[Rfam]
RNA sequence: GUCGGCUAUGGAGACAUGGUACCCAAAACCUAUGUAGGCAUGUUCGUCGGCGCUUUGUGCGCCCUGGCCGGCGUGCUGACGAUUGCGCUGCCCGUGCCGGUCAUUGUCUCCAAU
Numbered sequence: 001g002u003c004g005g006c007u008a009u010g011g012a013g014a015c016a017u018g019g020u021a022c023c024c025a026a027a028a029c030c031u032a033u034g035u036a037g038g039c040a041u042g043u044u045c046g047u048c049g050g051c052g053c054u055u056u057g058u059g060c061g062c063c064c065u066g067g068c069c070g071g072c073g074u075g076c077u078g079a080c081g082a083u084u085g086c087g088c089u090g091c092c093c094g095u096g097c098c099g100g101u102c103a104u105u106g107u108c109u110c111c112a113a114u
Stems, first nucleotide, its partner, number of pairs: 001114002004111002008107004013102003018097001021095002037077004049063003
Shown here is a 114-nucleotide RNA sequence from Rhodnius prolixus, a member of the family "Potassium channel RNA editing signal". About the family: This family represents a group of sequences related to the human potassium channel Kv1.1 hairpin element which directs the efficient modification of an adenosine to inosine by an adenosine deaminase acting on RNA (ADAR). The ADAR modification causes an isoleucine/valine recoding event which lies in the ion-conducting pore of the potassium channel. It is thought that this editing event targets the process of fast inactivation and allows a more rapid recovery from inactivation at negative potentials. The literature on the family includes a 2004 paper in Nat Struct Mol Biol by Bhalla et al., "Control of human potassium channel inactivation by editing of a small mRNA hairpin". Pairs were carried over by alignment from the consensus structure, which is taken from published work.